[Rfam]
RNA sequence: AAAGCAGGCUGCAAUUACAGUGCUUCAUUCUGUGGGAGUACUGCCAUUUUCCUGCUGAGAGUAACUCUGUUAAUGCUGUCUUCGGUUUCAUCUACGCGGUGCUGAAACCGUUUGUAUUUAACACGUACAAGC
Numbered sequence: 001a002a003a004g005c006a007g008g009c010u011g012c013a014a015u016u017a018c019a020g021u022g023c024u025u026c027a028u029u030c031u032g033u034g035g036g037a038g039u040a041c042u043g044c045c046a047u048u049u050u051c052c053u054g055c056u057g058a059g060a061g062u063a064a065c066u067c068u069g070u071u072a073a074u075g076c077u078g079u080c081u082u083c084g085g086u087u088u089c090a091u092c093u094a095c096g097c098g099g100u101g102c103u104g105a106a107a108c109c110g111u112u113u114g115u116a117u118u119u120a121a122c123a124c125g126u127a128c129a130a131g132c
Base pairs, nucleotide, nucleotide: 003056004055005054006053007052008051018043019042020041021040022039023038024037025036026035068125069124070123075118077116083110084109085108086107087106088105089104090103092101
RNA: Small nucleolar RNA SNORA69